[Rfam]
RNA: 6C RNA
RNA sequence: AGCGGGUCUGGCUCGCAUCCCCCCCGGAGCCGGACCCCCCGACGGCCCCUGUCUUCCCCCCCGAUAGGGGCCGUCCUCU
Numbered sequence: 001a002g003c004g005g006g007u008c009u010g011g012c013u014c015g016c017a018u019c020c021c022c023c024c025c026g027g028a029g030c031c032g033g034a035c036c037c038c039c040c041g042a043c044g045g046c047c048c049c050u051g052u053c054u055u056c057c058c059c060c061c062c063g064a065u066a067g068g069g070g071c072c073g074u075c076c077u078c079u
Stems, first nucleotide, its partner, number of pairs: 002040001004037010041075013